[Rfam]
RNA sequence: GACCUCUGCAAUGGACAAAGAGACAUCUUGCUGGUGGUGUUCUUACAUAAGUCAGGGGAGAGCAGAUGGAAGUCCUUGCUUCAUCCUAGCUUGAUGCCUAGUUUGCUGGCCAAAGCUGUCUUAUACCUAGGAUGCAUGA
Numbered sequence: 001g002a003c004c005u006c007u008g009c010a011a012u013g014g015a016c017a018a019a020g021a022g023a024c025a026u027c028u029u030g031c032u033g034g035u036g037g038u039g040u041u042c043u044u045a046c047a048u049a050a051g052u053c054a055g056g057g058g059a060g061a062g063c064a065g066a067u068g069g070a071a072g073u074c075c076u077u078g079c080u081u082c083a084u085c086c087u088a089g090c091u092u093g094a095u096g097c098c099u100a101g102u103u104u105g106c107u108g109g110c111c112a113a114a115g116c117u118g119u120c121u122u123a124u125a126c127c128u129a130g131g132a133u134g135c136a137u138g139a
Stems, first nucleotide, its partner, number of pairs: 003058006012050001014048001018044003022041006080132003093127001095125001099123003104118002107115001

Shown here is a 139-nucleotide RNA sequence from Mus musculus, a member of the family "Small nucleolar RNA SNORA48". From the family's description: The snoRNA ACA 48 has been identified to guide pseudouridylation of the residue U3797 in the 28S rRNA subunit. The family's consensus secondary structure was predicted with RNAalifold. Rfam 15.1 lists 2,109 matches to the family in 150 species. By type it is an H/ACA-box small nucleolar RNA. A search with the family's covariance model found it, with a score of 54 bits.